A member of the RNA family "glmS glucosamine-6-phosphate activated ribozyme aptamer" from Oxobacter pfennigii, 153 nucleotides long. It is annotated as a riboswitch. It scores 97 bits against the family's covariance model. A reference for the family is Winkler et al. (2004), "Control of gene expression by a natural metabolite-responsive ribozyme", Nature.
RNA sequence: AUUGUCAAAAAAGCGCCAGGACUUAUGGGGAACAUAAGUUAACGAGGACGGGGUUUAUCGAGUUUUCGGCGGAUGCCCUGCGGUGUGUCACCACCGAGAGAAAUCCUACAAACCCGGCAAGUGAUUGACGGACAAAAGGAUGGGUGAUUUUUA
Numbered sequence: 001a002u003u004g005u006c007a008a009a010a011a012a013g014c015g016c017c018a019g020g021a022c023u024u025a026u027g028g029g030g031a032a033c034a035u036a037a038g039u040u041a042a043c044g045a046g047g048a049c050g051g052g053g054u055u056u057a058u059c060g061a062g063u064u065u066u067c068g069g070c071g072g073a074u075g076c077c078c079u080g081c082g083g084u085g086u087g088u089c090a091c092c093a094c095c096g097a098g099a100g101a102a103a104u105c106c107u108a109c110a111a112a113c114c115c116g117g118c119a120a121g122u123g124a125u126u127g128a129c130g131g132a133c134a135a136a137a138g139g140a141u142g143g144g145u146g147a148u149u150u151u152u153a
Stems, first nucleotide, its partner, number of pairs: 020040008049080005058069004081096005102145001104142001114131003118127003
Dot-bracket structure: ...................((((((((.....))))))))........(((((....((((....))))......)))))(((((......))))).....(.(.........(((.(((....))).)))..........)..)........